A member of the RNA family "mir-16 microRNA precursor family" from Platysternon megacephalum, 72 nucleotides long. The match comes from Rfam's covariance-model search (40 bits). The family has 14 seed sequences and 4,705 matches in Rfam 15.1.
[Rfam]
RNA sequence: GCCAGCAGCAGCGCCAAAGUAAGGGUGGCAUGGUUUGUGUAUUGCCACCCUUACUUCUGCGCUGCUGCUGGU
Numbered sequence: 001g002c003c004a005g006c007a008g009c010a011g012c013g014c015c016a017a018a019g020u021a022a023g024g025g026u027g028g029c030a031u032g033g034u035u036u037g038u039g040u041a042u043u044g045c046c047a048c049c050c051u052u053a054c055u056u057c058u059g060c061g062c063u064g065c066u067g068c069u070g071g072u
Stems, first nucleotide, its partner, number of pairs: 001072003007066008016056001018055008